[Rfam]
RNA sequence: AUGCGGGCUAGUCCGGGGUGGUCGGCGUGCCCUGUAACUCGAAAUCGUCGAUAUGCGAGGGACGAAGCUUCAGGAAGACGCUAUCUCUACCACUUCAGCCUGGAGGUCCUACGAUGAUACCCCGUCCCGUAGGGUCGGCGGUAAGAUGGUGGCUAACCGGAGGGUUUGUCACCGCUUUUUACCAGGGGGACCGGUCGAGGCCCGGAAGGGAGCAGGCUUACCCUGGACGUUCGGCGCUUACGGGGUUGCGGGGUUGAGGCGGUCUCCAGUAAACUGGGUGGUGGAGCGGCGGCGACCUGAAGCGUGCCCGCAU
Numbered sequence: 001a002u003g004c005g006g007g008c009u010a011g012u013c014c015g016g017g018g019u020g021g022u023c024g025g026c027g028u029g030c031c032c033u034g035u036a037a038c039u040c041g042a043a044a045u046c047g048u049c050g051a052u053a054u055g056c057g058a059g060g061g062a063c064g065a066a067g068c069u070u071c072a073g074g075a076a077g078a079c080g081c082u083a084u085c086u087c088u089a090c091c092a093c094u095u096c097a098g099c100c101u102g103g104a105g106g107u108c109c110u111a112c113g114a115u116g117a118u119a120c121c122c123c124g125u126c127c128c129g130u131a132g133g134g135u136c137g138g139c140g141g142u143a144a145g146a147u148g149g150u151g152g153c154u155a156a157c158c159g160g161a162g163g164g165u166u167u168g169u170c171a172c173c174g175c176u177u178u179u180u181a182c183c184a185g186g187g188g189g190a191c192c193g194g195u196c197g198a199g200g201c202c203c204g205g206a207a208g209g210g211a212g213c214a215g216g217c218u219u220a221c222c223c224u225g226g227a228c229g230u231u232c233g234g235c236g237c238u239u240a241c242g243g244g245g246u247u248g249c250g251g252g253g254u255u256g257a258g259g260c261g262g263u264c265u266c267c268a269g270u271a272a273a274c275u276g277g278g279u280g281g282u283g284g285a286g287c288g289g290c291g292g293c294g295a296c297c298u299g300a301a302g303c304g305u306g307c308c309c310g311c312a313u
Stems, first nucleotide, its partner, number of pairs: 001313008011063004015033006038059004043054001067303008077293001079291003084285001087284007095277004100269007108262002112258001119254007126244008134235004138230003141179001143177003147174007155166004182226006193218004201210003